[Rfam]
RNA: MIR2655 microRNA precursor family
Organism: Trifolium subterraneum
RNA sequence: CCCUUAUCUUUUAAAAGUUUCAAGUUGGUCCCUUAUCUUUAUUUUAGGUUUCAAGUUGGUCCCUUCCGUCAAUUUUUUAACUAUUUCCGUUAAAUUUGGACAUGUGGCACACUUGGACAGAUGACACGUGUCCAAUUUUAACAGUAAUAGUAAAAAAAUUGACGGAAGGGACCAAUUUGAAACCUAAAAUAAAGAUAAGGGAUCAAUUUGAAACUUUUAAAAGAUAAGGGA
Numbered sequence: 001c002c003c004u005u006a007u008c009u010u011u012u013a014a015a016a017g018u019u020u021c022a023a024g025u026u027g028g029u030c031c032c033u034u035a036u037c038u039u040u041a042u043u044u045u046a047g048g049u050u051u052c053a054a055g056u057u058g059g060u061c062c063c064u065u066c067c068g069u070c071a072a073u074u075u076u077u078u079a080a081c082u083a084u085u086u087c088c089g090u091u092a093a094a095u096u097u098g099g100a101c102a103u104g105u106g107g108c109a110c111a112c113u114u115g116g117a118c119a120g121a122u123g124a125c126a127c128g129u130g131u132c133c134a135a136u137u138u139u140a141a142c143a144g145u146a147a148u149a150g151u152a153a154a155a156a157a158a159u160u161g162a163c164g165g166a167a168g169g170g171a172c173c174a175a176u177u178u179g180a181a182a183c184c185u186a187a188a189a190u191a192a193a194g195a196u197a198a199g200g201g202a203u204c205a206a207u208u209u210g211a212a213a214c215u216u217u218u219a220a221a222a223g224a225u226a227a228g229g230g231a
Stems, first nucleotide, its partner, number of pairs: 002229007023208003027204003031200013045186003